[Rfam]
RNA sequence: CUACAGCCAACUCAGCUGGCUGAGUUCCUCGCCUCAUGGGGGACGUGUGCAAUGGCUGCAAACAGCAGCUUCCUUGGUGGUGUAUGCAGCCUGUUUCUUGUAUGGCUGCUCUAAGGGACCUUGGAGACAGGC
Numbered sequence: 001c002u003a004c005a006g007c008c009a010a011c012u013c014a015g016c017u018g019g020c021u022g023a024g025u026u027c028c029u030c031g032c033c034u035c036a037u038g039g040g041g042g043a044c045g046u047g048u049g050c051a052a053u054g055g056c057u058g059c060a061a062a063c064a065g066c067a068g069c070u071u072c073c074u075u076g077g078u079g080g081u082g083u084a085u086g087c088a089g090c091c092u093g094u095u096u097c098u099u100g101u102a103u104g105g106c107u108g109c110u111c112u113a114a115g116g117g118a119c120c121u122u123g124g125a126g127a128c129a130g131g132c
Stems, first nucleotide, its partner, number of pairs: 002051001004049002019046002022044001025042004076120003087108005
RNA: Small nucleolar RNA SNORA70